[Rfam]
Vault RNA: a 90-nucleotide RNA sequence from Octopus sinensis.
RNA sequence: GUGUGGGCUUAGCCAUGUAGUUACUUCAUUAAAGUGGACUAUUGUAGAAUUCUUCCAGCCCUGAUACCACUGGCACUUUCUCACACACUU
Numbered sequence: 001g002u003g004u005g006g007g008c009u010u011a012g013c014c015a016u017g018u019a020g021u022u023a024c025u026u027c028a029u030u031a032a033a034g035u036g037g038a039c040u041a042u043u044g045u046a047g048a049a050u051u052c053u054u055c056c057a058g059c060c061c062u063g064a065u066a067c068c069a070c071u072g073g074c075a076c077u078u079u080c081u082c083a084c085a086c087a088c089u090u
Stems, first nucleotide, its partner, number of pairs: 002085006012074004017070002020068001026064003

The family's consensus secondary structure is taken from published work. NCBI's taxonomy places the organism under Eukaryota, Metazoa, Mollusca, Octopodiformes, Octopus.